[Rfam]
RNA sequence: CAGCGGGACACGCCGCCCCAACGCGGCGCUAUCUAGCUGGAAGGCUACACAUA
Numbered sequence: 001c002a003g004c005g006g007g008a009c010a011c012g013c014c015g016c017c018c019c020a021a022c023g024c025g026g027c028g029c030u031a032u033c034u035a036g037c038u039g040g041a042a043g044g045c046u047a048c049a050c051a052u053a
Base pairs, nucleotide, nucleotide: 011028012027013026014025015024016023034047035046036045037044038043
Shown here is a 53-nucleotide RNA from Paracoccus lutimaris, a member of the family "serC leader". From the family's description: This family is a putative regulatory RNA structure that is found upstream of the serC-serA operon in some alpha-proteobacteria. The final stem of the structure overlaps the ribosome binding site of the serC reading frame. The literature on the family includes a 2005 paper in Genome Biol by Corbino et al., "Evidence for a second class of S-adenosylmethionine riboswitches and other regulatory RNA motifs in alpha-proteobacteria". The organism belongs to Paracoccus, within Bacteria.